[Rfam]
RNA sequence: AUGGGUCGACGGGCGGUCGCGUCAUGUGGUGCGUGCAUCAUAUGCCGAGGAAAGUCCGGGCUCCGCAGGGAAGAACGGUGGAUAACGUCCACUCGGGGCAACCCGCGAGAAAGUGCAACAGAGAGUAGACCGCCAGGGCUGGUUCGCCAGCUCGGGUAAGGGUGAAAAGGUGGUGUAAGAGACCACCGGCGCCUGUGGUGACAUGGGCGGCCAGGUAAACCUCGUUCGGAGCAAGGCCAGAUAGUAGGCGAUGAGGCGUCCCGCUGAGUCUACGGGUAGGCUGCUAGAGCCGGUCGGCAACGGCCGGUCGAGAGAGAUGACCGUCACCGUGUUUCGGCGCGGUACAGGACCCGGCUUAUAGUCGGCCCAUUCCU
Number, nucleotide and partner (000 for none) at each position: 001a370002u369003g368004g367005g366006u365007c364008g363009a362010c361011g359012g325013g324014c323015g322016g321017u320018c319019g000020c047021g046022u000023c044024a043025u042026g041027u040028g039029g038030u037031g000032c000033g000034u000035g000036c000037a030038u029039c028040a027041u026042a025043u024044g023045c000046c021047g020048a000049g000050g000051a000052a357053a356054g355055u000056c354057c353058g352059g351060g350061c231062u230063c229064c228065g000066c000067a000068g262069g261070g260071a259072a000073g227074a226075a225076c224077g223078g092079u091080g090081g089082a088083u000084a000085a000086c000087g000088u082089c081090c080091a079092c078093u107094c105095g104096g103097g102098g000099c000100a000101a000102c097103c096104c095105g094106c000107g093108a222109g221110a000111a000112a000113g220114u219115g216116c215117a000118a000119c000120a000121g000122a000123g000124a000125g000126u000127a000128g000129a000130c161131c160132g157133c156134c155135a000136g153137g152138g151139c150140u149141g148142g147143u000144u000145c000146g000147c142148c141149a140150g139151c138152u137153c136154g000155g134156g133157u132158a000159a000160g131161g130162g000163u000164g000165a000166a000167a000168a000169g187170g186171u185172g184173g183174u182175g000176u000177a000178a000179g000180a000181g000182a174183c173184c172185a171186c170187c169188g000189g211190c209191g208192c207193c206194u205195g204196u203197g202198g000199u000200g000201a000202c197203a196204u195205g194206g193207g192208c191209g190210g000211c189212c000213a000214g000215g116216u115217a000218a000219a114220c113221c109222u108223c077224g076225u075226u074227c073228g064229g063230a062231g061232c000233a000234a000235g282236g281237c280238c279239a000240g000241a000242u000243a000244g273245u272246a271247g270248g269249c268250g000251a000252u000253g000254a000255g265256g264257c263258g000259u071260c070261c069262c068263g257264c256265u255266g000267a000268g249269u248270c247271u246272a245273c244274g000275g000276g000277u000278a000279g238280g237281c236282u235283g000284c000285u000286a000287g000288a000289g308290c307291c306292g305293g304294u303295c302296g301297g000298c000299a000300a000301c296302g295303g294304c293305c292306g291307g290308u289309c000310g000311a000312g000313a000314g000315a000316g000317a000318u000319g018320a017321c016322c015323g014324u013325c012326a000327c000328c000329g000330u000331g000332u000333u000334u000335c000336g000337g000338c000339g000340c000341g000342g000343u000344a000345c000346a000347g000348g000349a000350c060351c059352c058353g057354g056355c054356u053357u052358a000359u011360a000361g010362u009363c008364g007365g006366c005367c004368c003369a002370u001371u000372c000373c000374u000
Background:
Bacterial RNase P class A: a 374-nucleotide RNA from Leucobacter sp. cx-328. It is annotated as a ribozyme. Gene Ontology terms of the family: ribonuclease P activity, dimeric ribonuclease P complex and tRNA processing.